Rfam assigns this 88-nucleotide sequence from Spinacia oleracea to the family "Small nucleolar RNA Z157/R69/R10". Its family is annotated with nucleolus and RNA processing in the Gene Ontology. On this family, see Chen et al., Nucleic Acids Res 2003: "The high diversity of snoRNAs in plants: identification and comparative study of 120 snoRNA genes from Oryza sativa". Rfam classes the family as a C/D-box small nucleolar RNA.
[Rfam]
RNA sequence: GGUGGUAUACAUUGAUGAAGCUUUGUGUGGACUAGAGUUUCUGACCUUUUGGGUUGAAGACAAACCCCUUGGCUGUCUGAGUAACAUC
Numbered sequence: 001g002g003u004g005g006u007a008u009a010c011a012u013u014g015a016u017g018a019a020g021c022u023u024u025g026u027g028u029g030g031a032c033u034a035g036a037g038u039u040u041c042u043g044a045c046c047u048u049u050u051g052g053g054u055u056g057a058a059g060a061c062a063a064a065c066c067c068c069u070u071g072g073c074u075g076u077c078u079g080a081g082u083a084a085c086a087u088c
Base pairs, nucleotide, nucleotide: 001088002087003086004085006083007082008081038059039058040057041056045052046051
Dot-bracket structure: ((((.(((.............................((((...((....))...)))).....................))).))))